[Rfam]
RNA sequence: UGGGUGGGGCCCACACAGUCUGCCUGGAGGAUUCAACCUGACAAGUUGCAGUCGGACAGAGUGGGUUCAGCGGACCUUUGCCUCUGCCUCCCCUCUGUCCCCUGCGCACCUUCCUGCGGGGCUGGGUCAGGGGGAUGGGCCGGUGCGGGGACCACCACCUGGGCACUGGCCAGUCCUGGCCAGGCGCAUUUCCUCCAUGUCGGUGCACUGUGAUGGGGUCUGGGUCAGCUGGGAAGGCCUCCAGCAGGCAGGCGGCCCAGUGCCGCAUGAGCAGUGCCAGGUGCUACAGCCCCCACCCCCUUCUACAGCAGGUGCUACAGCAGCAGGUCUCUUCAAAUCCUGGGGCUGAGGGAGAGGACCACCACUGCGUCCUCCUCCCCACCCCGUUGGCGUUGCCAUAAUGGGGGGCAUCGCGUUCCCUCUGGGGGGGCAGUGUCCUCGCAGCACAGCAUUUUGCGCUGUCAACCAGGGCAGACUGUCCUCAGUGCACCCUAACUGUGCAGCGCCAUUGGGCAUGGCUCACAGGCCAUGCUCGGGUACCCAGGUUUGCAACAAUGUUGACUACCCACCCGACCCAUCUUGAAACACAG
Dot-bracket structure: (((((((((.(....................................................................................................................................................................................................................................................................................................................................................................................................................................................................................................................................................................).)..))))))))..(..(........)..)